[Rfam]
RNA sequence: UCGAUUAGCUAGGGGUGUCCACGGGGGCUGAGAACAAACCCUUAGAACCUGAGACUGGGUAAUGCCAGCGAAGGGAAGCUGUUUAUCUGAGGA
Numbered sequence: 001u002c003g004a005u006u007a008g009c010u011a012g013g014g015g016u017g018u019c020c021a022c023g024g025g026g027g028c029u030g031a032g033a034a035c036a037a038a039c040c041c042u043u044a045g046a047a048c049c050u051g052a053g054a055c056u057g058g059g060u061a062a063u064g065c066c067a068g069c070g071a072a073g074g075g076a077a078g079c080u081g082u083u084u085a086u087c088u089g090a091g092g093a
Base pairs, nucleotide, nucleotide: 006081007080008079009078010077011042012041013040014039016036017028018027019026020025048074049073050072055068056067057066058065
A member of the RNA family "TPP riboswitch aptamer (THI element)" from Myxacorys almedinensis, 93 nucleotides long. Pairs were carried over by alignment from the consensus structure, which is taken from published work. A search with the family's covariance model found it, with a score of 66 bits.